The record is a 127-nucleotide sequence from Muntiacus reevesi, which matches "Small nucleolar RNA SNORA40" in Rfam.
It scores 129 bits against the family's covariance model.

[Rfam]
RNA sequence: AGCACUUGUGUUUGUUUUUAUUUAACUUGUGGACAAAGACUUAUAGAUGGGUGCAAAAAUAAAUCCUUUUUUGCAACCCAGAACUCAUUGUUCAGUAUGAGUUUUGACACAGAUGAGAAGGAAUAUG
Number, nucleotide and partner (000 for none) at each position: 001a000002g054003c053004a052005c051006u050007u049008g048009u047010g000011u045012u000013u000014g040015u039016u038017u037018u036019u035020a000021u033022u000023u000024a000025a000026c031027u000028u000029g000030u000031g026032g000033a021034c000035a019036a018037a017038g016039a015040c014041u000042u000043a000044u000045a011046g000047a009048u008049g007050g006051g005052u004053g003054c002055a000056a000057a000058a000059a000060u000061a000062a000063a124064u123065c000066c121067u120068u000069u118070u117071u116072u115073g114074c000075a000076a000077c000078c000079c106080a105081g104082a103083a102084c101085u100086c099087a098088u097089u000090g000091u000092u000093c000094a000095g000096u000097a088098u087099g086100a085101g084102u083103u082104u081105u080106g079107a000108c000109a000110c000111a000112g000113a000114u073115g072116a071117g070118a069119a000120g067121g066122a000123a064124u063125a000126u000127g000
The family's RNA type in Rfam is H/ACA-box small nucleolar RNA. The base pairs follow the family's consensus structure, which was predicted with RNAalifold. The snoRNA ACA 40 belongs to the H/ACA family of snoRNAs and guides the pseudouridylation of 28S rRNA subunit at position U4565. NB This family has a high threshold value to exclude a large number of closely related sequences that do not appear to have conserved H and ACA boxes, and may be pseudogenes. The organism belongs to Muntiacus, within Eukaryota.